[Rfam]
RNA sequence: UUUGGGGUUGUAAACAUCCCCGACUGGAAGCUGUGUCUGCGCAGAGCUUUCAGUCUGAUGUUUGCAGCUGCAGG
Numbered sequence: 001u002u003u004g005g006g007g008u009u010g011u012a013a014a015c016a017u018c019c020c021c022g023a024c025u026g027g028a029a030g031c032u033g034u035g036u037c038u039g040c041g042c043a044g045a046g047c048u049u050u051c052a053g054u055c056u057g058a059u060g061u062u063u064g065c066a067g068c069u070g071c072a073g074g
Base pairs, nucleotide, nucleotide: 002073003072004071006069008067009066010065011064012063013062014061015060016059017058018057023054024053025052026051027050028049029048030047031046
This 74-nucleotide RNA sequence from Oryzias latipes belongs to the Rfam family "mir-30 microRNA precursor family". The organism belongs to Oryzias, within Eukaryota. Its family is annotated with gene silencing by miRNA and RISC complex in the Gene Ontology. Rfam describes the family as follows. This family consists of the mammalian microRNA (miRNA) precursor mir-30a. Animal miRNAs are transcribed as ~70nt precursors and subsequently processed by the Dicer enzyme to give a ~22nt product. In this case the mature sequence comes from both the 3' (miR-30) and 5' (mir-97-6) arms of the precursor. The extents of the hairpin precursors are not generally known and are estimated based on hairpin prediction. The products are thought to have regulatory roles through complementarity to mRNA. The involvement of Dicer in miRNA processing suggests a relationship with the phenomenon of RNA interference. miRNAs are numbered based on the sequence of the mature RNA. Pairs were carried over by alignment from the consensus structure, which was predicted with PFOLD. Rfam's curators put it in the seed alignment. For this family Rfam cites "Identification of novel genes coding for small expressed RNAs" (Lagos-Quintana et al., Science, 2001).